[Rfam]
This 26-nucleotide RNA from Gilliamella apicola belongs to the Rfam family "L25-Gammaproteobacteria ribosomal protein leader". It is one of the family's seed sequences.
RNA sequence: CCAACUACUGGGUCGCCUGUAAUUGG
Numbered sequence: 001c002c003a004a005c006u007a008c009u010g011g012g013u014c015g016c017c018u019g020u021a022a023u024u025g026g
Base pairs, nucleotide, nucleotide: 001026002025003024004023006021007020008019010017011016
A reference for the family is Eckert and Weinberg (2020), "Discovery of 20 novel ribosomal leader candidates in bacteria and archaea", BMC Microbiol. Rfam classes the family as a cis-regulatory leader.